Source information:
Guanidine-II riboswitch aptamer (mini-ykkC): a 50-nucleotide RNA sequence from Dokdonella koreensis. The base pairs follow the family's consensus structure, which is taken from published work. The literature on the family includes a 2007 paper in Nucleic Acids Res by Weinberg et al., "Identification of 22 candidate structured RNAs in bacteria using the CMfinder comparative genomics pipeline".
[Rfam]
RNA sequence: UGGCGAGGACGACCUCCCCCGCUUAGGGCCUCACCGCCGGGACGGCCCGG
Numbered sequence: 001u002g003g004c005g006a007g008g009a010c011g012a013c014c015u016c017c018c019c020c021g022c023u024u025a026g027g028g029c030c031u032c033a034c035c036g037c038c039g040g041g042a043c044g045g046c047c048c049g050g
Stems, first nucleotide, its partner, number of pairs: 002019002005016004037050005